[Rfam]
The record is a 143-nucleotide RNA from Staphylococcus sp. HGB0015, which matches "FMN riboswitch aptamer (RFN element)" in Rfam. Taxonomically the source falls in Staphylococcus (Bacteria, Bacillati, Bacillota, Staphylococcaceae). The match comes from Rfam's covariance-model search (119 bits). The RFN element is a highly conserved domain that is found frequently in the 5'-untranslated regions of prokaryotic mRNAs that encode for flavin mononucleotide (FMN) biosynthesis and transport proteins. This element is a metabolite-dependent riboswitch that directly binds FMN in the absence of proteins. In Bacillus subtilis, the riboswitch most likely controls gene expression by causing premature transcription termination within the 5' untranslated region of the ribDEAHT operon and precluding access to the ribosome-binding site of ypaA mRNA.The FMN riboswitch structure, reported in present an FMN-bound six-stem junction, adopts a butterfly-like scaffold, stapled together by opposingly directed but nearly identically folded peripheral domains. Gene Ontology term of the family: FMN binding.
RNA sequence: AUUCAUCUUCGGGGUAGGGUGCAAUUCCCAACCGGCAGUAAAUUAAAGCCUGCGACCUGCAAAAAAUCAAAAUCUUGAUAUUUUGUGGCUGAUCUAGUGAAAUUCUAGAGCCGACAGUAAAGUCUGGAUGGGAGAAGAUGGAG
Numbered sequence: 001a002u003u004c005a006u007c008u009u010c011g012g013g014g015u016a017g018g019g020u021g022c023a024a025u026u027c028c029c030a031a032c033c034g035g036c037a038g039u040a041a042a043u044u045a046a047a048g049c050c051u052g053c054g055a056c057c058u059g060c061a062a063a064a065a066a067u068c069a070a071a072a073u074c075u076u077g078a079u080a081u082u083u084u085g086u087g088g089c090u091g092a093u094c095u096a097g098u099g100a101a102a103u104u105c106u107a108g109a110g111c112c113g114a115c116a117g118u119a120a121a122g123u124c125u126g127g128a129u130g131g132g133a134g135a136a137g138a139u140g141g142a143g
Base pairs, nucleotide, nucleotide: 003141004140005139006138007137008136009135010134017029018028019027031123032122033113034112035053036052037051038050048111049110057088058087059086060085061084062083063082064081093109094108095107096106097105115126116125117124
Dot-bracket structure: ..((((((((......(((.......))).[[((((((.........[[))))...((((((((................))))))))....(((((.......)))))]])).(((....]]))).......))))))))..